Rfam assigns this 104-nucleotide sequence from Sphingobacterium wenxiniae to the family "SAM riboswitch aptamer (S box leader)".
The source organism's lineage runs through Bacteria, Bacteroidota, Sphingobacteriia, Sphingobacteriales and Sphingobacterium.
A search with the family's covariance model found it, with a score of 72 bits.
About the family: The SAM riboswitch is found upstream of a number of genes which code for proteins involved in methionine or cysteine biosynthesis in Gram-positive bacteria.

RNA sequence: CGCUUAUAGAGAAAGGUAGAGGGAUUAGACCCGAUGAAGCCUUAGCAACCUGUCUCUUGACAAGGUGCUACAUUCUACUCCAAGGUUAAGGGGAAAGAUAAGCU
Number, nucleotide and partner (000 for none) at each position: 001c000002g103003c102004u101005u100006a099007u098008a000009g000010a000011g000012a000013a043014a042015g041016g040017u039018a000019g000020a000021g032022g031023g030024a000025u000026u077027a076028g075029a074030c023031c022032c021033g000034a000035u000036g000037a000038a000039g017040c016041c015042u014043u013044a069045g068046c067047a066048a000049c065050c064051u062052g061053u060054c059055u000056c000057u000058u000059g054060a053061c052062a051063a000064g050065g049066u047067g046068c045069u044070a000071c000072a000073u096074u029075c028076u027077a026078c093079u092080c091081c090082a000083a000084g000085g000086u000087u000088a000089a000090g081091g080092g079093g078094a000095a000096a073097g000098a007099u006100a005101a004102g003103c002104u000